[Rfam]
RNA sequence: UUGCAUGUUUUGGCCCAUGGCCACUGUUGGCCACUCUCUAUUUUUGGAGUGUGGACAAAUACAAACAUGCUAGAUAAAAACACAUGGAGUUAACAGGGCCACCAGUCUCUCAAGGACAGACUGAGUUGGUAGUAUAAUACUCCAACAUUC
Numbered sequence: 001u002u003g004c005a006u007g008u009u010u011u012g013g014c015c016c017a018u019g020g021c022c023a024c025u026g027u028u029g030g031c032c033a034c035u036c037u038c039u040a041u042u043u044u045u046g047g048a049g050u051g052u053g054g055a056c057a058a059a060u061a062c063a064a065a066c067a068u069g070c071u072a073g074a075u076a077a078a079a080a081c082a083c084a085u086g087g088a089g090u091u092a093a094c095a096g097g098g099c100c101a102c103c104a105g106u107c108u109c110u111c112a113a114g115g116a117c118a119g120a121c122u123g124a125g126u127u128g129g130u131a132g133u134a135u136a137a138u139a140c141u142c143c144a145a146c147a148u149u150c
Stems, first nucleotide, its partner, number of pairs: 003070006031054004036049002086143004098130002102125001103123006
Rfam assigns this 150-nucleotide sequence from Myripristis murdjan to the family "Small nucleolar RNA U109". Rfam links the family to the GO terms RNA processing and nucleolus. It scores 61 bits against the family's covariance model.